[Rfam]
This 118-nucleotide RNA sequence from Papaver somniferum belongs to the Rfam family "U5 spliceosomal RNA". Lineage of the source: Eukaryota > Streptophyta > Streptophytina > Spermatophyta > Papaver. A search with the family's covariance model found it, with a score of 47 bits. The literature on the family includes a 1997 paper in Nucleic Acids Res by Zwieb, "The uRNA database". U5 RNA is a component of both types of known spliceosome. Rfam classes the family as a spliceosomal small nuclear RNA. Rfam links the family to the GO terms U5 snRNP and spliceosomal tri-snRNP complex assembly. Pairs were carried over by alignment from the consensus structure, which is taken from published work.
RNA sequence: UCACGGAGCAGUAAGCAUAGAGCGAACUCAUCUUUCGCCUUUUACUAAAGAAUACUAUGUGCUUGCCUCAUCUUUCUUAUUUUACUAAAGAAUAUUGUGUGCUUUAGUUAGAGGCAUA
Numbered sequence: 001u002c003a004c005g006g007a008g009c010a011g012u013a014a015g016c017a018u019a020g021a022g023c024g025a026a027c028u029c030a031u032c033u034u035u036c037g038c039c040u041u042u043u044a045c046u047a048a049a050g051a052a053u054a055c056u057a058u059g060u061g062c063u064u065g066c067c068u069c070a071u072c073u074u075u076c077u078u079a080u081u082u083u084a085c086u087a088a089a090g091a092a093u094a095u096u097g098u099g100u101g102c103u104u105u106a107g108u109u110a111g112a113g114g115c116a117u118a
Base pairs, nucleotide, nucleotide: 003078005076006075011066012065013064014063015062016061017060018059019058028054031051032050033049034048035047098118099117100116101115102114103113104112
Dot-bracket structure: ..(.((....(((((((((........(..(((((...........)))))..)...)))))))))........)).)...................(((((((.......)))))))